[Rfam]
Shown here is a 133-nucleotide RNA from Hydra vulgaris, a member of the family "U11 spliceosomal RNA".
Rfam links the family to the GO terms U11 snRNP, pre-mRNA 5'-splice site binding and mRNA 5'-splice site recognition.
The organism belongs to Hydra, within Eukaryota.
The family's consensus secondary structure is taken from published work.
RNA sequence: GAAAAGGGCACUUGCCGUCAGUGGCACGCGUUUGUUUCUGUAGAGGAACUUCGUGCGGAAUCGCCAUCAAGAGAUUUCGAGUGUAUAAUCUUUUGAACCGUGGGCUGUUGGUUUCGCUUAAACCGGCGCCCCU
Numbered sequence: 001g002a003a004a005a006g007g008g009c010a011c012u013u014g015c016c017g018u019c020a021g022u023g024g025c026a027c028g029c030g031u032u033u034g035u036u037u038c039u040g041u042a043g044a045g046g047a048a049c050u051u052c053g054u055g056c057g058g059a060a061u062c063g064c065c066a067u068c069a070a071g072a073g074a075u076u077u078c079g080a081g082u083g084u085a086u087a088a089u090c091u092u093u094u095g096a097a098c099c100g101u102g103g104g105c106u107g108u109u110g111g112u113u114u115c116g117c118u119u120a121a122a123c124c125g126g127c128g129c130c131c132c133u
Stems, first nucleotide, its partner, number of pairs: 008084005013026005027055004034049006056079007102131004107127008
For this family Rfam cites "Additional low-abundance human small nuclear ribonucleoproteins: U11, U12, etc" (Montzka and Steitz, Proc Natl Acad Sci U S A, 1988). A search with the family's covariance model found it, with a score of 97 bits.